RNA sequence: UCCGGGGGAAGCUCACCGCCGAGGCCACCCACGGGGUGCCCGUCACCCGCCGGCCCCGCCUCGGGGAAGGUCUGAGGGAAGGGCCGCCCGCGGCCCCAGCAGGGCCCCGCCCGCGCGGGCGGGUGAGCCACCAGCAAGGGGGGGCGCCGCGCAGGGCCGGCCCGGGCAGGAGAAGCGGGGGCGGGGGAAGCCCCCAUCGGCCGGCCAACCCCAGCCCCGCGGAUGCUCGUGGCCCCGCGGGGCCUUGAGACAGACUCACGGCCGGCGCGCUGAGUCCAAUGGGUGGGGUGGGGCACGGCCCCACAACCCAAUUCAGACUACUCUCCCCCGGG
Numbered sequence: 001u002c003c004g005g006g007g008g009a010a011g012c013u014c015a016c017c018g019c020c021g022a023g024g025c026c027a028c029c030c031a032c033g034g035g036g037u038g039c040c041c042g043u044c045a046c047c048c049g050c051c052g053g054c055c056c057c058g059c060c061u062c063g064g065g066g067a068a069g070g071u072c073u074g075a076g077g078g079a080a081g082g083g084c085c086g087c088c089c090g091c092g093g094c095c096c097c098a099g100c101a102g103g104g105c106c107c108c109g110c111c112c113g114c115g116c117g118g119g120c121g122g123g124u125g126a127g128c129c130a131c132c133a134g135c136a137a138g139g140g141g142g143g144g145c146g147c148c149g150c151g152c153a154g155g156g157c158c159g160g161c162c163c164g165g166g167c168a169g170g171a172g173a174a175g176c177g178g179g180g181g182c183g184g185g186g187g188a189a190g191c192c193c194c195c196a197u198c199g200g201c202c203g204g205c206c207a208a209c210c211c212c213a214g215c216c217c218c219g220c221g222g223a224u225g226c227u228c229g230u231g232g233c234c235c236c237g238c239g240g241g242g243c244c245u246u247g248a249g250a251c252a253g254a255c256u257c258a259c260g261g262c263c264g265g266c267g268c269g270c271u272g273a274g275u276c277c278a279a280u281g282g283g284u285g286g287g288g289u290g291g292g293g294c295a296c297g298g299c300c301c302c303a304c305a306a307c308c309c310a311a312u313u314c315a316g317a318c319u320a321c322u323c324u325c326c327c328c329c330g331g332g
Base pairs, nucleotide, nucleotide: 001332002331003330004329007326008325009324012287013286014285015284016283017282020063021062022061023060024059034048035047036046037045038044072316073315074314075313076312082263083262084261085260092106093105094104095103096102107122108121109120110119111118112117123259124258125257126256127255129253143244144243145242288304289303290302291301292300293299294298

Overview: A member of the RNA family "Nuclear RNase P" from Anas platyrhynchos, 332 nucleotides long. The family's RNA type in Rfam is ribozyme. The base pairs follow the family's consensus structure, which is taken from published work. A search with the family's covariance model found it, with a score of 135 bits. Ribonuclease P (RNase P) is a ubiquitous endoribonuclease, found in archaea, bacteria and eukarya as well as chloroplasts and mitochondria. Its best characterised activity is the generation of mature 5'-ends of tRNAs by cleaving the 5'-leader elements of precursor-tRNAs. Cellular RNase Ps are ribonucleoproteins. RNA from bacterial RNase Ps retains its catalytic activity in the absence of the protein subunit, i.e. it is a ribozyme. For this family Rfam cites "Structural implications of novel diversity in eucaryal RNase P RNA" (Marquez et al., RNA, 2005).